RNA sequence: CAGUUCCUGCAUUGUACACACUGUGCAAAUCAUUUCUGGAAGCACAGCGCAUACAAUGUGGAUGCUGUG
Numbered sequence: 001c002a003g004u005u006c007c008u009g010c011a012u013u014g015u016a017c018a019c020a021c022u023g024u025g026c027a028a029a030u031c032a033u034u035u036c037u038g039g040a041a042g043c044a045c046a047g048c049g050c051a052u053a054c055a056a057u058g059u060g061g062a063u064g065c066u067g068u069g
Stems, first nucleotide, its partner, number of pairs: 007061002010058007019049001021047006

This 69-nucleotide sequence from Takifugu rubripes belongs to the Rfam family "mir-460 microRNA precursor family". The family has 21 seed sequences and 1,029 matches in Rfam 15.1. Lineage of the source: Eukaryota > Craniata > Teleostei > Euteleosteomorpha > Takifugu.